[Rfam]
RNA sequence: CCAACGGCUCUUUUAAGAGCCACCAACCUAUUUCAGGGGAAAGAG
Numbered sequence: 001c002c003a004a005c006g007g008c009u010c011u012u013u014u015a016a017g018a019g020c021c022a023c024c025a026a027c028c029u030a031u032u033u034c035a036g037g038g039g040a041a042a043g044a045g
Base pairs, nucleotide, nucleotide: 006021007020008019009018010017011016